RNA sequence: GUUGGGAAAUGAUGAGAUUAUAUCGACUAUAUCAGAGGCUCAGUCAUCUGUUCUCUGCUGAAUAAAUUUUUGCACGUCAGUCUGAUCCCAAU
Numbered sequence: 001g002u003u004g005g006g007a008a009a010u011g012a013u014g015a016g017a018u019u020a021u022a023u024c025g026a027c028u029a030u031a032u033c034a035g036a037g038g039c040u041c042a043g044u045c046a047u048c049u050g051u052u053c054u055c056u057g058c059u060g061a062a063u064a065a066a067u068u069u070u071u072g073c074a075c076g077u078c079a080g081u082c083u084g085a086u087c088c089c090a091a092u
Base pairs, nucleotide, nucleotide: 001092002091003090004089005088006087007086
RNA: Small nucleolar RNA Z122